[Rfam]
Shown here is a 145-nucleotide sequence from Petropleomorpha daqingensis, a member of the family "c-di-AMP riboswitch aptamer (ydaO/yuaA leader)". Gene Ontology terms of the family: regulation of gene expression and cyclic-di-AMP binding. The organism belongs to Petropleomorpha, within Bacteria.

RNA sequence: CUGCCAUCGACACCACCCAGGGACGGGGGCGGGGGACCCACAUCGACGCGCAGCACGCGCGUCUCGGGGUGAAGCCGCCGAUGGCGGCCGGGCACCGAUCGCCCGAACCCGACAGCUCACCUCGCCGGCGGCGAUCGGAGGAACC
Numbered sequence: 001c002u003g004c005c006a007u008c009g010a011c012a013c014c015a016c017c018c019a020g021g022g023a024c025g026g027g028g029g030c031g032g033g034g035g036a037c038c039c040a041c042a043u044c045g046a047c048g049c050g051c052a053g054c055a056c057g058c059g060c061g062u063c064u065c066g067g068g069g070u071g072a073a074g075c076c077g078c079c080g081a082u083g084g085c086g087g088c089c090g091g092g093c094a095c096c097g098a099u100c101g102c103c104c105g106a107a108c109c110c111g112a113c114a115g116c117u118c119a120c121c122u123c124g125c126c127g128g129c130g131g132c133g134a135u136c137g138g139a140g141g142a143a144c145c
Stems, first nucleotide, its partner, number of pairs: 002130004013027002029125006039066001067110003075087004090104004